Shown here is a 75-nucleotide RNA from Cebus imitator, a member of the family "Small nucleolar RNA SNORD60". For this family Rfam cites "Site-specific ribose methylation of preribosomal RNA: a novel function for small nucleolar RNAs" (Kiss-Laszlo et al., Cell, 1996). Its family is annotated with nucleolus and RNA processing in the Gene Ontology. By type it is a C/D-box small nucleolar RNA. The family has 22 seed sequences and 825 matches in Rfam 15.1.

RNA sequence: AAACUGUGAUGAAUUUUUUAAAUUUCUGACACCUCGUAUGAAAGCUGCACUUGCAGUCUUGCAAGACUGAGGCUU
Numbered sequence: 001a002a003a004c005u006g007u008g009a010u011g012a013a014u015u016u017u018u019u020a021a022a023u024u025u026c027u028g029a030c031a032c033c034u035c036g037u038a039u040g041a042a043a044g045c046u047g048c049a050c051u052u053g054c055a056g057u058c059u060u061g062c063a064a065g066a067c068u069g070a071g072g073c074u075u
Base pairs, nucleotide, nucleotide: 001074004071044057045056046055047054048053